[Rfam]
RNA sequence: CGAUGGGGUAGAGGAGCGGAUUUUAAGAGUACUUUUUCAGAGAGUGACGUCUGUGAAGAAAAAGGAAAGGAACUUCCGCCGAAGCAAAAAAUGACGGUCUGUUCAUUUUUGCUGGGUUUACACUAAAUAAGUGUAAAACUGUCACUGCGAGGGUAACUACGCAGUGGAGGACUACUGAUCGA
Numbered sequence: 001c002g003a004u005g006g007g008g009u010a011g012a013g014g015a016g017c018g019g020a021u022u023u024u025a026a027g028a029g030u031a032c033u034u035u036u037u038c039a040g041a042g043a044g045u046g047a048c049g050u051c052u053g054u055g056a057a058g059a060a061a062a063a064g065g066a067a068a069g070g071a072a073c074u075u076c077c078g079c080c081g082a083a084g085c086a087a088a089a090a091a092u093g094a095c096g097g098u099c100u101g102u103u104c105a106u107u108u109u110u111g112c113u114g115g116g117u118u119u120a121c122a123c124u125a126a127a128u129a130a131g132u133g134u135a136a137a138a139c140u141g142u143c144a145c146u147g148c149g150a151g152g153g154u155a156a157c158u159a160c161g162c163a164g165u166g167g168a169g170g171a172c173u174a175c176u177g178a179u180c181g182a
Stems, first nucleotide, its partner, number of pairs: 007176005016079005023072002032064007083113006090107005114140002117137008142167007
Lysine riboswitch aptamer: a 182-nucleotide RNA sequence from Fictibacillus arsenicus.